[Rfam]
RNA sequence: ACCCUCCAGCUCCCUUUCCCAUCGGAUCUGAACACUGGUCUUGGUGGUCGUUCAAGGAGGAAGAGUGAACCUGGAGCUGGCCUGGCGCUGGCGCACCUGCUGCACAGCACGGCCCGGUUUCAGACAGGG
Numbered sequence: 001a002c003c004c005u006c007c008a009g010c011u012c013c014c015u016u017u018c019c020c021a022u023c024g025g026a027u028c029u030g031a032a033c034a035c036u037g038g039u040c041u042u043g044g045u046g047g048u049c050g051u052u053c054a055a056g057g058a059g060g061a062a063g064a065g066u067g068a069a070c071c072u073g074g075a076g077c078u079g080g081c082c083u084g085g086c087g088c089u090g091g092c093g094c095a096c097c098u099g100c101u102g103c104a105c106a107g108c109a110c111g112g113c114c115c116g117g118u119u120u121c122a123g124a125c126a127g128g129g
Stems, first nucleotide, its partner, number of pairs: 003060005019047005025040004077117004082112002093108002
Dot-bracket structure: ..(((((...........(((((.((((........))))..)))))........)))))................((((.((.........((............))..)).))))............
Small nucleolar RNA SNORA61: a 129-nucleotide RNA sequence from Ochotona princeps. Rfam's curators write: ACA61 is a member of the H/ACA class of snoRNA that guide the sites of modification of uridines to pseudouridines. The family has 25 seed sequences and 881 matches in Rfam 15.1. The organism belongs to Ochotona, within Eukaryota. The family's consensus secondary structure was predicted with PFOLD.